About this RNA: The family of this 163-nucleotide RNA from Tetrahymena thermophila is "U1 spliceosomal RNA". The organism belongs to Tetrahymena, within Eukaryota.
[Rfam]
RNA sequence: UUACUUACCUGGCUGGAGUUAGCUAUCGAUCAUGAAGGGUAGCGGCUUAGGGUGGAGCAGGUCAUUGCACAAAAGAUGUCUGUAAUACCUUAUUGUUCCCCGUGCGGGGAACCGAAACAGCACAAUUUCUGCUAGGGGAGACGUGCACUUAGUGCUGUCUCCG
Numbered sequence: 001u002u003a004c005u006u007a008c009c010u011g012g013c014u015g016g017a018g019u020u021a022g023c024u025a026u027c028g029a030u031c032a033u034g035a036a037g038g039g040u041a042g043c044g045g046c047u048u049a050g051g052g053u054g055g056a057g058c059a060g061g062u063c064a065u066u067g068c069a070c071a072a073a074a075g076a077u078g079u080c081u082g083u084a085a086u087a088c089c090u091u092a093u094u095g096u097u098c099c100c101c102g103u104g105c106g107g108g109g110a111a112c113c114g115a116a117a118c119a120g121c122a123c124a125a126u127u128u129c130u131g132c133u134a135g136g137g138g139a140g141a142c143g144u145g146c147a148c149u150u151a152g153u154g155c156u157g158u159c160u161c162c163g
Base pairs, nucleotide, nucleotide: 012121013120014119015118016048017047018046019045020044023042024041025040026039027038049090050089051088053087056083060079062076063075093115094114095113096111097109098108099107100106137162138161139160140159141158145155146154147153148152

Rfam links the family to the GO terms U1 snRNP, mRNA 5'-splice site recognition and pre-mRNA 5'-splice site binding.